[Rfam]
RNA: FMN riboswitch aptamer (RFN element)
Organism: Serpentinicella alkaliphila
Nucleotides: 127
Base pairs, nucleotide, nucleotide: 003125006122007121008120009119010118017029018028019027031107032106033097034096035059036058037057038056054095055094062073063072064071077093078092079091080090081089099110100109101108
Number, partner (000 for none) and nucleotide at each position: 001000a002000a003125u004000a005000u006122c007121c008120u009119u010118c011000a012000g013000g014000g015000c016000g017029g018028g019027g020000u021000g022000a023000a024000a025000u026000u027019c028018c029017c030000c031107a032106c033097c034096g035059g036058c037057g038056g039000u040000a041000a042000a043000u044000g045000u046000u047000u048000a049000a050000c051000a052000a053000a054095g055094c056038c057037c058036g059035c060000g061000a062073g063072c064071c065000a066000a067000u068000u069000u070000u071064g072063g073062c074000u075000g076000a077093u078092c079091u080090g081089g082000u083000g084000a085000a086000a087000u088000u089081c090080c091079a092078g093077a094055g095054c096034c097033g098000a099110c100109a101108g102000u103000a104000a105000a106032g107031u108101c109100u110099g111000g112000a113000u114000g115000a116000a117000a118010g119009a120008a121007g122006g123000u124000a125003g126000u127000a